RNA: Vault RNA
RNA sequence: AAGGCAGCUCAGCCCAGCGGUUCCAUGGACCAAAGCAUUGGUUGGAUCCCCUAAUCGCUUCCAGCGGUUUGAGACCCACGGGCGCUGCCUGACUUUUUA
Numbered sequence: 001a002a003g004g005c006a007g008c009u010c011a012g013c014c015c016a017g018c019g020g021u022u023c024c025a026u027g028g029a030c031c032a033a034a035g036c037a038u039u040g041g042u043u044g045g046a047u048c049c050c051c052u053a054a055u056c057g058c059u060u061c062c063a064g065c066g067g068u069u070u071g072a073g074a075c076c077c078a079c080g081g082g083c084g085c086u087g088c089c090u091g092a093c094u095u096u097u098u099a
Stems, first nucleotide, its partner, number of pairs: 002094002005091003012083004017079001019077002026072001028070002